U7 small nuclear RNA: a 64-nucleotide RNA sequence from Piliocolobus tephrosceles. A reference for the family is Spycher et al. (1994), "3' end processing of mouse histone pre-mRNA: evidence for additional base-pairing between U7 snRNA and pre-mRNA", Nucleic Acids Res. The base pairs follow the family's consensus structure, which was predicted with PFOLD. Lineage of the source: Eukaryota > Deuterostomia > Chordata > Primates > Piliocolobus.

[Rfam]
Nucleotides: 064
Stems, first nucleotide, its partner, number of pairs: 034061002037056004043050002
Number, partner (000 for none) and nucleotide at each position: 001000a002000g003000g004000u005000g006000u007000u008000a009000c010000a011000g012000c013000u014000c015000u016000u017000u018000u019000a020000g021000a022000a023000u024000u025000u026000g027000u028000c029000u030000a031000g032000c033000a034061g035060g036000c037056u038055u039054u040053c041000a042000a043050g044049u045000u046000u047000u048000u049044g050043c051000c052000a053040g054039a055038a056037a057000c058000c059000a060035c061034c062000u063000c064000u